[Rfam]
RNA sequence: UGAUGCCCCUCUCCCACCCCUGAGGAUCCCGGGUGGGCGAGGGGACGACCAGAGGGAUC
Numbered sequence: 001u002g003a004u005g006c007c008c009c010u011c012u013c014c015c016a017c018c019c020c021u022g023a024g025g026a027u028c029c030c031g032g033g034u035g036g037g038c039g040a041g042g043g044g045a046c047g048a049c050c051a052g053a054g055g056g057a058u059c
Stems, first nucleotide, its partner, number of pairs: 006044006013037006025059006